[Rfam]
RNA: Small nucleolar SNORD12/SNORD106
Organism: Erinaceus europaeus
RNA sequence: GCCGGAGUAAAUGAUGACGUUACUUUUUUCCCCAUCAGAUCGAUAAUGAUGAUUUUCUUUGCGCAUUUGCCAGUUUAGUUCUGAUAACGCCGGC
Numbered sequence: 001g002c003c004g005g006a007g008u009a010a011a012u013g014a015u016g017a018c019g020u021u022a023c024u025u026u027u028u029u030c031c032c033c034a035u036c037a038g039a040u041c042g043a044u045a046a047u048g049a050u051g052a053u054u055u056u057c058u059u060u061g062c063g064c065a066u067u068u069g070c071c072a073g074u075u076u077a078g079u080u081c082u083g084a085u086a087a088c089g090c091c092g093g094c
Stems, first nucleotide, its partner, number of pairs: 001094005007088002009085001